Rfam assigns this 78-nucleotide RNA from Chironomus riparius to the family "mir-988 microRNA precursor family". It scores 74 bits against the family's covariance model. Rfam 15.1 lists 26 matches to the family in 26 species.
[Rfam]
RNA sequence: UUAUUGUGGGCGUGUGCUUUGUAGCAUAGAGAUUAGAUUUGAUUUGUCCCCUUGUUACAAACCUCACGCUUACGGUAA
Numbered sequence: 001u002u003a004u005u006g007u008g009g010g011c012g013u014g015u016g017c018u019u020u021g022u023a024g025c026a027u028a029g030a031g032a033u034u035a036g037a038u039u040u041g042a043u044u045u046g047u048c049c050c051c052u053u054g055u056u057a058c059a060a061a062c063c064u065c066a067c068g069c070u071u072a073c074g075g076u077a078a
Base pairs, nucleotide, nucleotide: 002077003076004075005074006073007072009070010069011068012067013066014065016063018061019060020059021058022057023056024055025054026053029050031048032047033046
Taxonomically the source falls in Chironomus (Eukaryota, Pancrustacea, Insecta, Chironomidae).